[Rfam]
RNA: L4-Archaeoglobi ribosomal protein leades
RNA sequence: CUGAUGUGUGCGCUCAUGGGCCAACGUUGAAGAACGUGCCCGGUUCACCGUGAAAACGGGAGAAAGCGCCCCAGUCAG
Numbered sequence: 001c002u003g004a005u006g007u008g009u010g011c012g013c014u015c016a017u018g019g020g021c022c023a024a025c026g027u028u029g030a031a032g033a034a035c036g037u038g039c040c041c042g043g044u045u046c047a048c049c050g051u052g053a054a055a056a057c058g059g060g061a062g063a064a065a066g067c068g069c070c071c072c073a074g075u076c077a078g
Base pairs, nucleotide, nucleotide: 001078002077003076004075005074008071010069011068012067013066015042018041019040020039025036026035027034028033044064045063046062048060049058050057051056